[Rfam]
The family of this 140-nucleotide RNA sequence from Holothuria leucospilota is "Small nucleolar RNA SNORD10".
RNA sequence: GCGAGAUGAUGAUAACCAUGCGUGUCAUUUGAGUUCCCUGGCCAACAUUGUAUUUCUGUAAGCAGUGUGGGUGUUCUGCCCCACAGCUUGUUGCGUAUGAUGGAGGCAGGGAUGAAUGAUACAUGAGGUAUUCUGAUUGC
Numbered sequence: 001g002c003g004a005g006a007u008g009a010u011g012a013u014a015a016c017c018a019u020g021c022g023u024g025u026c027a028u029u030u031g032a033g034u035u036c037c038c039u040g041g042c043c044a045a046c047a048u049u050g051u052a053u054u055u056c057u058g059u060a061a062g063c064a065g066u067g068u069g070g071g072u073g074u075u076c077u078g079c080c081c082c083a084c085a086g087c088u089u090g091u092u093g094c095g096u097a098u099g100a101u102g103g104a105g106g107c108a109g110g111g112a113u114g115a116a117u118g119a120u121a122c123a124u125g126a127g128g129u130a131u132u133c134u135g136a137u138u139g140c
Stems, first nucleotide, its partner, number of pairs: 001140004046102008